[Rfam]
RNA sequence: UAUAAACAUCAAGAGCAGUUUAAUCUGCACCAACCGAGCAAGACAGCCGCGGUGGUCAAGAUACGAUGUGGAAGAUUUAGUUUAACUUCAAAAAAAUGUCAUUAU
Numbered sequence: 001u002a003u004a005a006a007c008a009u010c011a012a013g014a015g016c017a018g019u020u021u022a023a024u025c026u027g028c029a030c031c032a033a034c035c036g037a038g039c040a041a042g043a044c045a046g047c048c049g050c051g052g053u054g055g056u057c058a059a060g061a062u063a064c065g066a067u068g069u070g071g072a073a074g075a076u077u078u079a080g081u082u083u084a085a086c087u088u089c090a091a092a093a094a095a096a097u098g099u100c101a102u103u104a105u
Stems, first nucleotide, its partner, number of pairs: 006069005015028004029056003034052003038047002042100004071089004